[Rfam]
Source information:
Rfam assigns this 135-nucleotide sequence from Jaculus jaculus to the family "Small nucleolar RNA SNORA70". A reference for the family is Charette and Gray (2000), "Pseudouridine in RNA: what, where, how, and why", IUBMB Life. Rfam's curators write: snoRNA U70 seems to be exclusive to mammals and is a member of the H/ACA class of snoRNA which contain H (ANANNA) and ACA box motifs.
RNA sequence: CUGCAGUCAAUUAAAUCAACCUGGUUCCUUUCCUCAUGGGUCCUUAGUGUGCAGCGGCUGCAAACAGCAGCCUCCUUGGUAGUGUAUGCAGCCUGUUGUUUAUACAGGUUGCUAUAAGGGAUCUUGGUAACAGUU
Numbered sequence: 001c002u003g004c005a006g007u008c009a010a011u012u013a014a015a016u017c018a019a020c021c022u023g024g025u026u027c028c029u030u031u032c033c034u035c036a037u038g039g040g041u042c043c044u045u046a047g048u049g050u051g052c053a054g055c056g057g058c059u060g061c062a063a064a065c066a067g068c069a070g071c072c073u074c075c076u077u078g079g080u081a082g083u084g085u086a087u088g089c090a091g092c093c094u095g096u097u098g099u100u101u102a103u104a105c106a107g108g109u110u111g112c113u114a115u116a117a118g119g120g121a122u123c124u125u126g127g128u129a130a131c132a133g134u135u
Stems, first nucleotide, its partner, number of pairs: 002053004019048002027040002078123003089111006